RNA: Small nucleolar RNA SNORA64/SNORA10 family
RNA sequence: ACUCUCUCAUUUCUGCACAGUCACACUUGGCUUCAUCUGUGUGACUUAGUAAUGGGGAGAGAGAGGAAAAAUCUCAGGACCUUAGACUGGCCUUAUGGUGGCCUCUUUUUCCUUGAGACGCUCAACAGGC
Numbered sequence: 001a002c003u004c005u006c007u008c009a010u011u012u013c014u015g016c017a018c019a020g021u022c023a024c025a026c027u028u029g030g031c032u033u034c035a036u037c038u039g040u041g042u043g044a045c046u047u048a049g050u051a052a053u054g055g056g057g058a059g060a061g062a063g064a065g066g067a068a069a070a071a072u073c074u075c076a077g078g079a080c081c082u083u084a085g086a087c088u089g090g091c092c093u094u095a096u097g098g099u100g101g102c103c104u105c106u107u108u109u110u111c112c113u114u115g116a117g118a119c120g121c122u123c124a125a126c127a128g129g130c
Stems, first nucleotide, its partner, number of pairs: 002065007011057005019046008073117002076114003084108003089103004